[Rfam]
RNA: Listeria sRNA rli47
Organism: Listeria innocua
RNA sequence: UAUAUAUAGAGUACAACGAACAAAAAAAGGUGAUGCGAAUGACAAAAACUUGGUGUACAAGCUGAUUUUUUUCUCAGCUUUGUCAUAUGCCGGCAAAACGUCUGGUGAAGGAUUUUAGUGUCAAGCAACUAUGGUUAGUUUACAGGAGGAAGGCGAGGAGUAUACGCCGCGUCAAGGACUUUACGCUAACUUAGUUGUAGGAAGACGGAAUUUCGUUACGUCGCUCGUUUAUCAAUAUUUUUUAUCCUCACUACAUUGGUAAAUAAGCGAAUAAAGUAUCGUAUCAUUCAUGGCCACUAUUUAAGCAAGUUACGGGCGCUCAUUUAUUCGUAAGUUAGAAUAUCUUGAGAAGUAAGUAGCAAGACAAAGAAUUCGCCUACUUGUUUGAAAAUGCCUCACCGUUUUCCGAAUGUUGUAUGUUUAUUCAGAAACAUCCAGACAUGGUCCGGCCCAUCAGAUGAGUGGCAAGACAAGCUCAUCCGAAAAGAAAAACCCCGUGUGGCGAAUUUG
Numbered sequence: 001u002a003u004a005u006a007u008a009g010a011g012u013a014c015a016a017c018g019a020a021c022a023a024a025a026a027a028a029g030g031u032g033a034u035g036c037g038a039a040u041g042a043c044a045a046a047a048a049c050u051u052g053g054u055g056u057a058c059a060a061g062c063u064g065a066u067u068u069u070u071u072u073c074u075c076a077g078c079u080u081u082g083u084c085a086u087a088u089g090c091c092g093g094c095a096a097a098a099c100g101u102c103u104g105g106u107g108a109a110g111g112a113u114u115u116u117a118g119u120g121u122c123a124a125g126c127a128a129c130u131a132u133g134g135u136u137a138g139u140u141u142a143c144a145g146g147a148g149g150a151a152g153g154c155g156a157g158g159a160g161u162a163u164a165c166g167c168c169g170c171g172u173c174a175a176g177g178a179c180u181u182u183a184c185g186c187u188a189a190c191u192u193a194g195u196u197g198u199a200g201g202a203a204g205a206c207g208g209a210a211u212u213u214c215g216u217u218a219c220g221u222c223g224c225u226c227g228u229u230u231a232u233c234a235a236u237a238u239u240u241u242u243u244a245u246c247c248u249c250a251c252u253a254c255a256u257u258g259g260u261a262a263a264u265a266a267g268c269g270a271a272u273a274a275a276g277u278a279u280c281g282u283a284u285c286a287u288u289c290a291u292g293g294c295c296a297c298u299a300u301u302u303a304a305g306c307a308a309g310u311u312a313c314g315g316g317c318g319c320u321c322a323u324u325u326a327u328u329c330g331u332a333a334g335u336u337a338g339a340a341u342a343u344c345u346u347g348a349g350a351a352g353u354a355a356g357u358a359g360c361a362a363g364a365c366a367a368a369g370a371a372u373u374c375g376c377c378u379a380c381u382u383g384u385u386u387g388a389a390a391a392u393g394c395c396u397c398a399c400c401g402u403u404u405u406c407c408g409a410a411u412g413u414u415g416u417a418u419g420u421u422u423a424u425u426c427a428g429a430a431a432c433a434u435c436c437a438g439a440c441a442u443g444g445u446c447c448g449g450c451c452c453a454u455c456a457g458a459u460g461a462g463u464g465g466c467a468a469g470a471c472a473a474g475c476u477c478a479u480c481c482g483a484a485a486a487g488a489a490a491a492a493c494c495c496c497g498u499g500u501g502g503c504g505a506a507u508u509u510g
Stems, first nucleotide, its partner, number of pairs: 030503002033500005050483004054478002058474001060079006080473005088467005094462001099460009110447005118442005125198005133191007141183002144180002152173004157168002160165001200407009214281002217278003221270005227264010292395003300389011314378004318360003322357007329349001331347004363374002408436001410434005418427002